[Rfam]
The record is a 185-nucleotide sequence from Xanthomonas albilineans, which matches "6S / SsrS RNA" in Rfam. E. coli 6S RNA was the first non coding RNA to be sequenced, but its function was unknown until recently. Lineage of the source: Bacteria > Pseudomonadota > Lysobacterales > Lysobacteraceae > Xanthomonas albilineans. By type it is a non-coding RNA gene.
RNA sequence: CGUUCUCUGCUGUGAACGACAGCGUGUGCAAACAUUCGCCUUGUCCCUUAAUGACGACCACGGGGUGGCGACGGAAUCGGGAGUGCAGGUCCGCCUCGUAGCGGGAAGCCCGAAGGUUCUCCAGCCAUCCCACUUGAACCCCGGGUUCAAGGUCGUUUCGCACGCAUCGUCACGGCGGAGAAUGC
Numbered sequence: 001c002g003u004u005c006u007c008u009g010c011u012g013u014g015a016a017c018g019a020c021a022g023c024g025u026g027u028g029c030a031a032a033c034a035u036u037c038g039c040c041u042u043g044u045c046c047c048u049u050a051a052u053g054a055c056g057a058c059c060a061c062g063g064g065g066u067g068g069c070g071a072c073g074g075a076a077u078c079g080g081g082a083g084u085g086c087a088g089g090u091c092c093g094c095c096u097c098g099u100a101g102c103g104g105g106a107a108g109c110c111c112g113a114a115g116g117u118u119c120u121c122c123a124g125c126c127a128u129c130c131c132a133c134u135u136g137a138a139c140c141c142c143g144g145g146u147u148c149a150a151g152g153u154c155g156u157u158u159c160g161c162a163c164g165c166a167u168c169g170u171c172a173c174g175g176c177g178g179a180g181a182a183u184g185c
Base pairs, nucleotide, nucleotide: 002183003182004181005180006179007178008177009176010175011174012173013172014171015170017169018168019167038153039152040151042149043148046145047144062131063130064129066127067126068125069124073120074119075118076117078116085109086108090105091104092103093102094101